[Rfam]
The record is a 75-nucleotide RNA sequence from Portunus trituberculatus, which matches "mir-1 microRNA precursor family" in Rfam.
On this family, see Lee and Ambros, Science 2001: "An extensive class of small RNAs in Caenorhabditis elegans".

RNA sequence: CUUACGGCUCCGUGCUUCCUUACGUGCCAUAAGUUAUCUACAGCUAUGGAAUGUAAAGAAGUAUGGAGUUGUGAG
Numbered sequence: 001c002u003u004a005c006g007g008c009u010c011c012g013u014g015c016u017u018c019c020u021u022a023c024g025u026g027c028c029a030u031a032a033g034u035u036a037u038c039u040a041c042a043g044c045u046a047u048g049g050a051a052u053g054u055a056a057a058g059a060a061g062u063a064u065g066g067a068g069u070u071g072u073g074a075g
Stems, first nucleotide, its partner, number of pairs: 007069012020056006027049005